The family of this 74-nucleotide sequence from Collichthys lucidus is "tRNA". Rfam classes the family as a transfer RNA. A reference for the family is Hou (1993), "The tertiary structure of tRNA and the development of the genetic code", Trends Biochem Sci. Clan: tRNA clan.

RNA sequence: GGCGCCGUGGCUUAGAUGGUUAAAGUGCCUGUCUAAUAAACAGGAGAUCUUGGGUUCAAAUCCCAGCGGUGCCU
Numbered sequence: 001g002g003c004g005c006c007g008u009g010g011c012u013u014a015g016a017u018g019g020u021u022a023a024a025g026u027g028c029c030u031g032u033c034u035a036a037u038a039a040a041c042a043g044g045a046g047a048u049c050u051u052g053g054g055u056u057c058a059a060a061u062c063c064c065a066g067c068g069g070u071g072c073c074u
Stems, first nucleotide, its partner, number of pairs: 001073007010026004028044005050066005